[Rfam]
RNA: NLPC-P60 RNA
RNA sequence: CGGUUCUUGCAUCUCGUGACACCGAGUGACCGUAUUUGAUGCGCUCACUCAUGGGGAAGUCCCAUGACUCGCCCCGUCACCGGAGGU
Number, nucleotide and partner (000 for none) at each position: 001c000002g000003g000004u000005u000006c000007u000008u000009g000010c000011a000012u000013c000014u000015c000016g000017u000018g000019a000020c000021a000022c000023c000024g000025a049026g048027u047028g046029a000030c000031c043032g042033u041034a040035u039036u000037u000038g000039a035040u034041g033042c032043g031044c000045u000046c028047a027048c026049u025050c000051a000052u000053g075054g074055g073056g072057a000058a069059g068060u067061c066062c000063c000064a000065u000066g061067a060068c059069u058070c000071g000072c056073c055074c054075c053076g000077u000078c000079a000080c000081c000082g000083g000084a000085g000086g000087u000